[Rfam]
RNA sequence: GAAAAACCGGGUGUGAAUCCCGGUCACCGAAAUCCGAAGGUUUCCUGGGCAAGGUUCGUCCCCCCAGGGUUAGUCGGACCCUAAGGCGAGGCCCAACGGCGUAGUCGAUGGACAACAGGUUAAUAUUCCUGUACUAGCUAAGUGUAGUGAUGAAGGGACGCGGAAGGAAAAUGUUAAUGACUGAUGGAUUAGUCAUACCAAGCAGGCAAUUCGUAGAGUAGGAAAAUCCGCUUUACAUAAGAACCAACUGUGAUGGGGCGAAGAAACCCUCGGGUGGAACCGUCUAACAUGGAACCAUGCUGCCAAGAAAAGCUUCUAAGCGUCUGAUGCUUAGUUAUCCGUACUAAAACCGACACAGGUAGGAAGGUCGAGUAGACUAAGGUGCG
Number, nucleotide and partner (000 for none) at each position: 001g000002a000003a000004a000005a000006a024007c023008c022009g021010g020011g019012u000013g000014u000015g000016a000017a000018u000019c011020c010021c009022g008023g007024u006025c384026a383027c382028c381029g000030a000031a000032a000033u364034c363035c362036g000037a000038a000039g345040g344041u000042u000043u000044c068045c067046u066047g065048g064049g063050c000051a000052a000053g061054g060055u000056u000057c000058g000059u000060c054061c053062c000063c049064c048065c047066a046067g045068g044069g000070u000071u000072a000073g000074u000075c341076g340077g339078a338079c000080c111081c110082u000083a000084a000085g106086g105087c104088g000089a102090g000091g100092c099093c098094c000095a000096a000097c000098g093099g092100c091101g000102u089103a000104g087105u086106c085107g000108a000109u000110g081111g080112a000113c000114a000115a132116c131117a130118g129119g128120u000121u000122a000123a000124u000125a000126u000127u000128c119129c118130u117131g116132u115133a000134c000135u337136a336137g335138c334139u333140a332141a331142g330143u329144g328145u327146a000147g321148u320149g000150a000151u000152g316153a315154a314155g313156g000157g000158a000159c000160g303161c302162g301163g300164a000165a000166g296167g295168a000169a000170a000171a290172u289173g288174u287175u286176a000177a196178u195179g194180a193181c192182u000183g000184a000185u000186g000187g000188a000189u000190u000191a000192g181193u180194c179195a178196u177197a000198c256199c255200a000201a000202g251203c250204a249205g248206g000207c000208a000209a000210u243211u242212c000213g236214u235215a234216g233217a232218g231219u230220a000221g229222g228223a000224a000225a000226a000227u000228c222229c221230g219231c218232u217233u216234u215235a214236c213237a000238u000239a000240a000241g000242a211243a210244c000245c000246a000247a000248c205249u204250g203251u202252g000253a000254u000255g199256g198257g000258g283259c282260g000261a000262a000263g000264a000265a000266a275267c274268c273269c000270u000271c000272g000273g268274g267275u266276g000277g000278a000279a000280c000281c000282g259283u258284c000285u000286a175287a174288c173289a172290u171291g000292g000293a000294a000295c167296c166297a000298u000299g000300c163301u162302g161303c160304c000305a000306a000307g000308a000309a000310a000311a000312g000313c155314u154315u153316c152317u000318a000319a000320g148321c147322g000323u000324c000325u000326g000327a145328u144329g143330c142331u141332u140333a139334g138335u137336u136337a135338u078339c077340c076341g075342u000343a000344c040345u039346a000347a000348a000349a000350c359351c358352g000353a000354c000355a000356c000357a000358g351359g350360u000361a000362g035363g034364a033365a000366g378367g377368u376369c375370g000371a000372g000373u000374a000375g369376a368377c367378u366379a000380a000381g028382g027383u026384g025385c000386g000

A member of the RNA family "Bacterial large subunit ribosomal RNA" from Lentisphaera araneosa, 386 nucleotides of a longer RNA. The organism belongs to Lentisphaera araneosa, within Bacteria.